The family of this 112-nucleotide RNA from Melghirimyces algeriensis is "SAM riboswitch aptamer (S box leader)". Taxonomically the source falls in Melghirimyces (Bacteria, Bacillati, Bacillota, Caryophanales). Rfam describes the family as follows. The SAM riboswitch is found upstream of a number of genes which code for proteins involved in methionine or cysteine biosynthesis in Gram-positive bacteria.

RNA sequence: CUCUUAUCAAGAGAGGCGGAGGGACGAGCCCGAUGAAGCCCGGCAACCCCGGUCAUGAUAUCCGGAAGGUGCCAAUUCUUGCAAAAGCCGUCAGGCUUUUGAGAGAUAAGGG
Numbered sequence: 001c002u003c004u005u006a007u008c009a010a011g012a013g014a015g016g017c018g019g020a021g022g023g024a025c026g027a028g029c030c031c032g033a034u035g036a037a038g039c040c041c042g043g044c045a046a047c048c049c050c051g052g053u054c055a056u057g058a059u060a061u062c063c064g065g066a067a068g069g070u071g072c073c074a075a076u077u078c079u080u081g082c083a084a085a086a087g088c089c090g091u092c093a094g095g096c097u098u099u100u101g102a103g104a105g106a107u108a109a110g111g112g
Stems, first nucleotide, its partner, number of pairs: 001112008013041001015040003021031003025081004042073004047069002049065004077104001082101006